Rfam assigns this 113-nucleotide RNA sequence from Lentibacillus cibarius to the family "SAM riboswitch aptamer (S box leader)".
RNA sequence: CUCUUAUCAAGAGCGGCGGAGGGAAUAGGCCCAUCGAAGCCCGGCAACCAGCAAGCCAUGUGCUUUGCAAGGUGCUACAUCCUACAGGUCAAGAAAGAUCUGGUAGAUAAGAG
Numbered sequence: 001c002u003c004u005u006a007u008c009a010a011g012a013g014c015g016g017c018g019g020a021g022g023g024a025a026u027a028g029g030c031c032c033a034u035c036g037a038a039g040c041c042c043g044g045c046a047a048c049c050a051g052c053a054a055g056c057c058a059u060g061u062g063c064u065u066u067g068c069a070a071g072g073u074g075c076u077a078c079a080u081c082c083u084a085c086a087g088g089u090c091a092a093g094a095a096a097g098a099u100c101u102g103g104u105a106g107a108u109a110a111g112a113g
Stems, first nucleotide, its partner, number of pairs: 001113008013042001015041003021032003026084004043076004048072002051068004080105001085102006
Description:
The match comes from Rfam's covariance-model search (84 bits).